[Rfam]
RNA sequence: UUGAACGUUGAGUUAUAUAACAGAACCUGUAAUGAGUUGCGAAUAUGAUCGCAGAUCUUUAUGAACAUCUAAGGGACUGAGUUCUA
Numbered sequence: 001u002u003g004a005a006c007g008u009u010g011a012g013u014u015a016u017a018u019a020a021c022a023g024a025a026c027c028u029g030u031a032a033u034g035a036g037u038u039g040c041g042a043a044u045a046u047g048a049u050c051g052c053a054g055a056u057c058u059u060u061a062u063g064a065a066c067a068u069c070u071a072a073g074g075g076a077c078u079g080a081g082u083u084c085u086a
Stems, first nucleotide, its partner, number of pairs: 003084004